RNA sequence: AUGUGCCACUCGUACACCGCGGUUCUGAGCGCGCUGUCCGCACCCACCUGACGACCACUCGCCAUGUUGUGCUAGCC
Numbered sequence: 001a002u003g004u005g006c007c008a009c010u011c012g013u014a015c016a017c018c019g020c021g022g023u024u025c026u027g028a029g030c031g032c033g034c035u036g037u038c039c040g041c042a043c044c045c046a047c048c049u050g051a052c053g054a055c056c057a058c059u060c061g062c063c064a065u066g067u068u069g070u071g072c073u074a075g076c077c
Base pairs, nucleotide, nucleotide: 002016003015004014005013006012020036021035022034023033025031048075049074050073052071053070
Background: Shown here is a 77-nucleotide sequence from Xanthomonas oryzae, a member of the family "Xanthomonas sRNA sX9". The match comes from Rfam's covariance-model search (71 bits).